RNA sequence: ACAAAUACAGUGAUAAGGAAUAGUAAAAUAUUUGAUGUCUUACAGAGAGAGGGAAAUGCUGGAAGCCCUUAGAAUAUGAUAUUUGAAGCAGCCUUUUAGUAGCAAUCUUGAACAAUUUAUCUUUUAUAAAGAAGAUUUAAGUAGAGAUUGACGGUAGUUACGUUAUAGCUAAGGUUUUCCGAAGAUAUCAUACUUUGUAUGAUAAUUAGGGUGGUACCGCGAUUGUCCUCGCCCCUAUA
Numbered sequence: 001a002c003a004a005a006u007a008c009a010g011u012g013a014u015a016a017g018g019a020a021u022a023g024u025a026a027a028a029u030a031u032u033u034g035a036u037g038u039c040u041u042a043c044a045g046a047g048a049g050a051g052g053g054a055a056a057u058g059c060u061g062g063a064a065g066c067c068c069u070u071a072g073a074a075u076a077u078g079a080u081a082u083u084u085g086a087a088g089c090a091g092c093c094u095u096u097u098a099g100u101a102g103c104a105a106u107c108u109u110g111a112a113c114a115a116u117u118u119a120u121c122u123u124u125u126a127u128a129a130a131g132a133a134g135a136u137u138u139a140a141g142u143a144g145a146g147a148u149u150g151a152c153g154g155u156a157g158u159u160a161c162g163u164u165a166u167a168g169c170u171a172a173g174g175u176u177u178u179c180c181g182a183a184g185a186u187a188u189c190a191u192a193c194u195u196u197g198u199a200u201g202a203u204a205a206u207u208a209g210g211g212u213g214g215u216a217c218c219g220c221g222a223u224u225g226u227c228c229u230c231g232c233c234c235c236u237a238u239a
Base pairs, nucleotide, nucleotide: 007100008099015095016094017093018092026084027083028082029081030080031079038073039072040071049070050069051068052067053066103150104149105148106147107146108145109144152162153161187203188202189201190200191199192198193197208236209235210234211233219232220231221230222229
This 239-nucleotide RNA sequence from Clostridioides difficile belongs to the Rfam family "T-box leader". The family's consensus secondary structure is taken from published work. The family has 48 seed sequences and 19,395 matches in Rfam 15.1. The sequence is in the family's curated seed alignment.